Rfam assigns this 297-nucleotide sequence from Schistosoma mansoni to the family "Metazoan signal recognition particle RNA". Rfam links the family to the GO terms signal recognition particle, endoplasmic reticulum targeting and SRP-dependent cotranslational protein targeting to membrane, signal sequence recognition. The family's RNA type in Rfam is non-coding RNA gene. Rfam's curators put it in the seed alignment. Lineage of the source: Eukaryota > Bilateria > Platyhelminthes > Schistosomatoidea > Schistosoma. The signal recognition particle (SRP) is a universally conserved ribonucleoprotein. It is involved in the co-translational targeting of proteins to membranes. The eukaryotic SRP consists of a 300-nucleotide 7S RNA and six proteins: SRPs 72, 68, 54, 19, 14, and 9. Archaeal SRP consists of a 7S RNA and homologues of the eukaryotic SRP19 and SRP54 proteins. Eukaryotic and archaeal 7S RNAs have very similar secondary structures, as represented by this family. Eight helical elements fold into the Alu and S domains, separated by a long linker region. The Alu domain is thought to mediate the peptide chain elongation retardation function of the SRP. The universally conserved helix which interacts with the SRP54 M domain mediates signal sequence recognition. In eukaryotes and archaea, the SRP19-helix 6 complex is thought to be involved in SRP assembly and stabilises helix 8 for SRP54 binding. The Signal Recognition Particle Database (SRPDB) provides compilations of SRP components, with phylogenetic data and structural illustrations. Many sequences below the threshold for this family are clearly closely related, but are most likely to be SRP RNA derived pseudogenes. The human genome in particular is known to contain a large amount of SRP RNA related sequence, including Alu repeats. While the threshold of this family is set high so as to minimise the number of hits to such regions, it is likely that some remain.
RNA sequence: GCUGGGCGUGGUGGCGUGCGCCUGUAAUCUAGCUACUUGGAGGCCAGGGUGCGGGAUUUCGUGGGACCGGGAGUUCUGGCAUAUGGGUGCUCAUGUUGAUCGGGCGUCCACGCUAAGCACGGCGCCGAUAUGGAUGAGCUGUCGGAGGACGGGUUGUCCAGGUCGUCUAAGGAGGGGCGGACCGGCCCAGGGGGGAAACCCAGCAGGCAAAAGUCCCCGCGUGGUGCGGUAGCGGGAUAGCGCCUGUGAAUGGUGUCCAUGUGACAGCCCGGUUGGCGCGUGAAGACCGCCUCCUUU
Numbered sequence: 001g002c003u004g005g006g007c008g009u010g011g012u013g014g015c016g017u018g019c020g021c022c023u024g025u026a027a028u029c030u031a032g033c034u035a036c037u038u039g040g041a042g043g044c045c046a047g048g049g050u051g052c053g054g055g056a057u058u059u060c061g062u063g064g065g066a067c068c069g070g071g072a073g074u075u076c077u078g079g080c081a082u083a084u085g086g087g088u089g090c091u092c093a094u095g096u097u098g099a100u101c102g103g104g105c106g107u108c109c110a111c112g113c114u115a116a117g118c119a120c121g122g123c124g125c126c127g128a129u130a131u132g133g134a135u136g137a138g139c140u141g142u143c144g145g146a147g148g149a150c151g152g153g154u155u156g157u158c159c160a161g162g163u164c165g166u167c168u169a170a171g172g173a174g175g176g177g178c179g180g181a182c183c184g185g186c187c188c189a190g191g192g193g194g195g196a197a198a199c200c201c202a203g204c205a206g207g208c209a210a211a212a213g214u215c216c217c218c219g220c221g222u223g224g225u226g227c228g229g230u231a232g233c234g235g236g237a238u239a240g241c242g243c244c245u246g247u248g249a250a251u252g253g254u255g256u257c258c259a260u261g262u263g264a265c266a267g268c269c270c271g272g273u274u275g276g277c278g279c280g281u282g283a284a285g286a287c288c289g290c291c292u293c294c295u296u297u
Base pairs, nucleotide, nucleotide: 001044002043003042004023005022006021007020008019009018010017028041029040030039046295047294048293049292051290052289053288054287057284058283059282065274066273067272068271069270070269071268076267077266078265080263081262082261083260085258086257087256088255091253092252093251094250096248101246102245103244104243105242106241107240108236109235111234112233113232114231115230117227118226119225120224122222123221124220125219126165127164128163129162131160132159133158134157135156136155137154139152140151141150142149143148166172167171174217175216176215177214178213185208186207187206192201193200194199